This 96-nucleotide RNA sequence from Oribacterium sp. C9 belongs to the Rfam family "drum RNA". Rfam describes the family as follows. Firmicutes, Bacteroidetes (1 example), Proteobacteria (2 examples), Spirochaetes (2 examples). The source organism's lineage runs through Bacteria, Bacillati, Bacillota, Lachnospiraceae and Oribacterium. The base pairs follow the family's consensus structure, which is taken from published work.
RNA sequence: AAGCGUCGAAGCAGUAUACUGUGCCAGUAAGCAAUAUGCUGCAGAGCUUAUGGAUGGUUUAAUGGUUCCCAAAAACUGGCGCCGAAAACAUUAAAU
Numbered sequence: 001a002a003g004c005g006u007c008g009a010a011g012c013a014g015u016a017u018a019c020u021g022u023g024c025c026a027g028u029a030a031g032c033a034a035u036a037u038g039c040u041g042c043a044g045a046g047c048u049u050a051u052g053g054a055u056g057g058u059u060u061a062a063u064g065g066u067u068c069c070c071a072a073a074a075a076c077u078g079g080c081g082c083c084g085a086a087a088a089c090a091u092u093a094a095a096u
Base pairs, nucleotide, nucleotide: 001049002048003047004046011042012041013040014039015038016037017036018035020033021032022031024079025078026077027076062091063090064089